[Rfam]
RNA sequence: AUUAAAUAGAAGCCGAAUUUCUUUUAGAAAGCGGGGGAACCAUUUAACUGGGGUGAAUUUUGCUAAAGUCCAAUGCAAAUAGGGUGCCUGUCUACCCGAAUCCGUCAGCUAACCUCGUAGGCUUGCUGCCAGGAUAC
Numbered sequence: 001a002u003u004a005a006a007u008a009g010a011a012g013c014c015g016a017a018u019u020u021c022u023u024u025u026a027g028a029a030a031g032c033g034g035g036g037g038a039a040c041c042a043u044u045u046a047a048c049u050g051g052g053g054u055g056a057a058u059u060u061u062g063c064u065a066a067a068g069u070c071c072a073a074u075g076c077a078a079a080u081a082g083g084g085u086g087c088c089u090g091u092c093u094a095c096c097c098g099a100a101u102c103c104g105u106c107a108g109c110u111a112a113c114c115u116c117g118u119a120g121g122c123u124u125g126c127u128g129c130c131a132g133g134a135u136a137c
Stems, first nucleotide, its partner, number of pairs: 011123004018030003031118006041050002051103003059079004082097004